[Rfam]
Nucleotides: 115
Base pairs, nucleotide, nucleotide: 001015002014003013004012005011016041017040018039019038020037021036023034024033025032026031046114048091049090050089051088052087053086054080055079057077058076059075062072063071064070096111097110098109099108100107101106
Number, partner (000 for none) and nucleotide at each position: 001015g002014a003013g004012g005011g006000u007000a008000g009000g010000c011005c012004c013003c014002u015001c016041g017040a018039a019038g020037c021036c022000g023034c024033u025032u026031u027000u028000c029000a030000g031026g032025a033024g034023g035000a036021g037020g038019c039018u040017u041016c042000a043000a044000a045000c046114c047000g048091c049090c050089u051088u052087a053086a054080g055079c056000u057077g058076c059075c060000u061000u062072g063071g064070u065000a066000a067000a068000g069000a070064g071063c072062c073000u074000u075059g076058g077057u078000a079055g080054u081000g082000a083000g084000c085000g086053u087052u088051a089050a090049g091048g092000a093000a094000a095000a096111g097110g098109c099108a100107u101106c102000a103000u104000g105000a106101g107100a108099u109098g110097u111096c112000a113000g114046g115000u
The record is a 115-nucleotide RNA sequence from Aliiroseovarius crassostreae, which matches "Group II catalytic intron D1-D4-2" in Rfam. A search with the family's covariance model found it, with a score of 117 bits. Rfam describes the family as follows. Group II introns are found in rRNA, tRNA and mRNA of organelles in fungi, plants and protists, and also in mRNA in bacteria. Gene Ontology term of the family: Group II intron splicing. Taxonomically the source falls in Aliiroseovarius (Bacteria, Pseudomonadati, Alphaproteobacteria, Paracoccaceae). For this family Rfam cites "The ins and outs of group II introns" (Bonen and Vogel, Trends Genet, 2001).